[Rfam]
RNA sequence: UACCGGCUGGUGGGAGAGUGUUGCCGGGGCUUAAUUCGCCCGGGCAGCCGCCGAAGGGGCAAAACCUUUUAAACCAGGUUGAAACUCUCAGGCAAAAGGACCGCCAUAACCGG
Number, nucleotide and partner (000 for none) at each position: 001u000002a000003c000004c000005g000006g000007c000008u106009g105010g104011u103012g102013g101014g000015a000016g000017a000018g000019u000020g048021u047022u046023g045024c044025c043026g000027g000028g000029g000030c000031u000032u000033a000034a000035u000036u000037c000038g000039c000040c000041c000042g000043g025044g024045c023046a022047g021048c020049c000050g093051c092052c091053g089054a088055a000056g000057g087058g086059g085060c000061a000062a000063a080064a079065c078066c077067u076068u000069u000070u000071a000072a000073a000074c000075c000076a067077g066078g065079u064080u063081g000082a000083a000084a000085c059086u058087c057088u054089c053090a000091g052092g051093c050094a000095a000096a000097a000098g000099g000100a000101c013102c012103g011104c010105c009106a008107u000108a000109a000110c000111c000112g000113g000
The family of this 113-nucleotide RNA from Dethiosulfatarculus sandiegensis is "Glycine riboswitch aptamer". Lineage of the source: Bacteria > Pseudomonadati > Desulfarculia > Desulfarculaceae > Dethiosulfatarculus.